[Rfam]
RNA sequence: GCAGGAAGCCUGUGAUGUCUUAGCCGUGGUGUCUGAACCUGGCUGAAGGACUCUUCUGAAGACUCACUUUAGGCUCUGAGGCUUCCAGGGGA
Numbered sequence: 001g002c003a004g005g006a007a008g009c010c011u012g013u014g015a016u017g018u019c020u021u022a023g024c025c026g027u028g029g030u031g032u033c034u035g036a037a038c039c040u041g042g043c044u045g046a047a048g049g050a051c052u053c054u055u056c057u058g059a060a061g062a063c064u065c066a067c068u069u070u071a072g073g074c075u076c077u078g079a080g081g082c083u084u085c086c087a088g089g090g091g092a
Base pairs, nucleotide, nucleotide: 004086005085006084007083008082009081010080

The family of this 92-nucleotide sequence from Halcyon senegalensis is "Small nucleolar RNA SNORD91 family". A search with the family's covariance model found it, with a score of 56 bits. For this family Rfam cites "RNomics: an experimental approach that identifies 201 candidates for novel, small, non-messenger RNAs in mouse" (Huttenhofer et al., EMBO J, 2001).